[Rfam]
RNA sequence: CAUGUGGCAGUUUCAAUUUGUGACCGACACUAACGGGUAGUGACGAUAAAUACUCGUUUUUGCGAUCACAAUAACUGAAAUUGCAGCAU
Numbered sequence: 001c002a003u004g005u006g007g008c009a010g011u012u013u014c015a016a017u018u019u020g021u022g023a024c025c026g027a028c029a030c031u032a033a034c035g036g037g038u039a040g041u042g043a044c045g046a047u048a049a050a051u052a053c054u055c056g057u058u059u060u061u062g063c064g065a066u067c068a069c070a071a072u073a074a075c076u077g078a079a080a081u082u083g084c085a086g087c088a089u
Stems, first nucleotide, its partner, number of pairs: 003088003007084004013078003018071006025064002028062002032058008

Notes: Shown here is an 89-nucleotide RNA from Pseudolycoriella hygida, a member of the family "mir-274 microRNA precursor family". A reference for the family is Lai et al. (2003), "Computational identification of Drosophila microRNA genes", Genome Biol. The base pairs follow the family's consensus structure, which was predicted with RNAalifold. It scores 79 bits against the family's covariance model. Its family is annotated with miRNA-mediated post-transcriptional gene silencing and RISC complex in the Gene Ontology.